[Rfam]
RNA sequence: CAGCCAGGCCGGGCCCCUCUGGCAAUCCAAUUGGAUUGCGAUGUCGGACUGGAAUU
Numbered sequence: 001c002a003g004c005c006a007g008g009c010c011g012g013g014c015c016c017c018u019c020u021g022g023c024a025a026u027c028c029a030a031u032u033g034g035a036u037u038g039c040g041a042u043g044u045c046g047g048a049c050u051g052g053a054a055u056u
Base pairs, nucleotide, nucleotide: 006050007049009047010046011045012044022039023038024037025036026035027034028033
The family of this 56-nucleotide RNA sequence from Pseudorhodoplanes sinuspersici is "terC RNA".
Taxonomically the source falls in Pseudorhodoplanes (Bacteria, Pseudomonadati, Alphaproteobacteria, Hyphomicrobiales).
The family's RNA type in Rfam is cis-regulatory element.